[Rfam]
RNA sequence: AUGAUAUAGGGAUUCAAAGUUAUGAAGUAUUUUGCUUGCAAAGAAUACUCCAUAACCUUGAAGACCGAACAAGCAUGAGGGAAAAAGAUACACGAAGAAUGAGUGUAUCGAUUUCCGAAUGAUUGUAGGAUUGCGGGAACGAAGUGAAGCAAUCCGUAUAUGAU
Numbered sequence: 001a002u003g004a005u006a007u008a009g010g011g012a013u014u015c016a017a018a019g020u021u022a023u024g025a026a027g028u029a030u031u032u033u034g035c036u037u038g039c040a041a042a043g044a045a046u047a048c049u050c051c052a053u054a055a056c057c058u059u060g061a062a063g064a065c066c067g068a069a070c071a072a073g074c075a076u077g078a079g080g081g082a083a084a085a086a087g088a089u090a091c092a093c094g095a096a097g098a099a100u101g102a103g104u105g106u107a108u109c110g111a112u113u114u115c116c117g118a119a120u121g122a123u124u125g126u127a128g129g130a131u132u133g134c135g136g137g138a139a140c141g142a143a144g145u146g147a148a149g150c151a152a153u154c155c156g157u158a159u160a161u162g163a164u
Stems, first nucleotide, its partner, number of pairs: 001164002004161004010065001013062001016059002019056006026049005031042004069126004074121003079116002082114002087109007128155007139145002
A member of the RNA family "Clostridiales-1 RNA" from Butyrivibrio sp. INlla14, 164 nucleotides long. Rfam classes the family as a small RNA.